[Rfam]
Shown here is a 73-nucleotide RNA from Collinsella sp. AK_207A, a member of the family "tRNA".
Rfam links the family to the GO term triplet codon-amino acid adaptor activity.
The source organism's lineage runs through Bacteria, Actinomycetota, Coriobacteriia, Coriobacteriaceae and Collinsella.
It scores 67 bits against the family's covariance model.
Rfam describes the family as follows. Transfer RNA (tRNA) molecules are approximately 80 nucleotides in length.
RNA sequence: GGGGAUGUAGCUCAGCUGGGAGAGCGCGGGCUUUGCAAGCCUGAGGCCGAGGGUUCGAGCCCCUUCAUCUCCA
Numbered sequence: 001g002g003g004g005a006u007g008u009a010g011c012u013c014a015g016c017u018g019g020g021a022g023a024g025c026g027c028g029g030g031c032u033u034u035g036c037a038a039g040c041c042u043g044a045g046g047c048c049g050a051g052g053g054u055u056c057g058a059g060c061c062c063c064u065u066c067a068u069c070u071c072c073a
Stems, first nucleotide, its partner, number of pairs: 001072007010025004027043005049065005